[Rfam]
RNA: Potassium channel RNA editing signal
Organism: Dinoponera quadriceps
Nucleotides: 114
Stems, first nucleotide, its partner, number of pairs: 001114002004111001008107004013102003018097002021095002037077002040074001050062002
Number, partner (000 for none) and nucleotide at each position: 001114g002113u003000a004111g005000g006000c007000u008107a009106c010105g011104g012000c013102g014101a015100u016000a017000u018097g019096a020000c021095a022094c023000c024000g025000a026000a027000a028000a029000c030000u031000u032000u033000c034000c035000c036000c037077g038076g039000c040074a041000u042000g043000u044000u045000c046000a047000u048000c049000g050062g051061c052000g053000g054000a055000c056000u057000g058000u059000g060000c061051g062050c063000a064000c065000u066000u067000g068000c069000c070000g071000g072000u073000g074040u075000c076038c077037u078000u079000a080000c081000u082000a083000u084000c085000g086000c087000u088000c089000u090000u091000c092000c093000g094022g095021u096019u097018c098000c099000g100015g101014u102013c103000a104011u105010u106009g107008u108000c109000a110000g111004c112000a113002a114001c